[Rfam]
RNA sequence: AAGCAUGUAACGAGUUUCUCGGAUUCCCCUUCAGGACAGUGGAUGAUGCAGGUUCGAGUUUCUGAUGCU
Numbered sequence: 001a002a003g004c005a006u007g008u009a010a011c012g013a014g015u016u017u018c019u020c021g022g023a024u025u026c027c028c029c030u031u032c033a034g035g036a037c038a039g040u041g042g043a044u045g046a047u048g049c050a051g052g053u054u055c056g057a058g059u060u061u062c063u064g065a066u067g068c069u
Stems, first nucleotide, its partner, number of pairs: 002069004

Rfam assigns this 69-nucleotide RNA sequence from Tetracentron sinense to the family "Small nucleolar RNA snoR60". Taxonomically the source falls in Tetracentron (Eukaryota, Viridiplantae, Tracheophyta, Trochodendrales). The match comes from Rfam's covariance-model search (69 bits).